mir-574 microRNA precursor family: a 79-nucleotide RNA sequence from Cnephaeus nilssonii.

RNA sequence: AGGCCCGGAGAGAGAAGCAGGGUCUGAUCUGCAGCCUCUGUGGCAGCUGUUGAUCAGCCCUUGCCUCUCUUCCUCCCCG
Numbered sequence: 001a002g003g004c005c006c007g008g009a010g011a012g013a014g015a016a017g018c019a020g021g022g023u024c025u026g027a028u029c030u031g032c033a034g035c036c037u038c039u040g041u042g043g044c045a046g047c048u049g050u051u052g053a054u055c056a057g058c059c060c061u062u063g064c065c066u067c068u069c070u071u072c073c074u075c076c077c078c079g
Base pairs, nucleotide, nucleotide: 008071009070010069011068012067013066014065017064018063019062020061022059024057025056026055027054028053029052032049033048034047035046
The base pairs follow the family's consensus structure, which was predicted with RNAalifold. Rfam links the family to the GO terms miRNA-mediated post-transcriptional gene silencing and RISC complex. The family is grouped with related families in Rfam's "mir-574 microRNA precursor clan".